The family of this 97-nucleotide RNA sequence from Nonomuraea cavernae is "Glycine riboswitch aptamer". The organism belongs to Nonomuraea, within Bacteria.
[Rfam]
RNA sequence: GCAACUCUGGAAAGCAGGCGCGUCCGCCAGGCGCGUCUCACCGACGGUGCAAGCCCUCCGGGUGAAGCUCUCAGGUCGACAUGACAGAGGGGGAGAU
Numbered sequence: 001g002c003a004a005c006u007c008u009g010g011a012a013a014g015c016a017g018g019c020g021c022g023u024c025c026g027c028c029a030g031g032c033g034c035g036u037c038u039c040a041c042c043g044a045c046g047g048u049g050c051a052a053g054c055c056c057u058c059c060g061g062g063u064g065a066a067g068c069u070c071u072c073a074g075g076u077c078g079a080c081a082u083g084a085c086a087g088a089g090g091g092g093g094a095g096a097u
Stems, first nucleotide, its partner, number of pairs: 002092001005089005016038007040076003043072002047070001049068001053063002